[Rfam]
RNA sequence: UUGAAGGAGAAAUACCCAAGUUCUUGUUCUAUCAAGAGGGUGGGUAUUGCUCCUUCAUUUAG
Dot-bracket structure: .((((((((.((((((((...(((((......)))))...)))))))).)))))))).....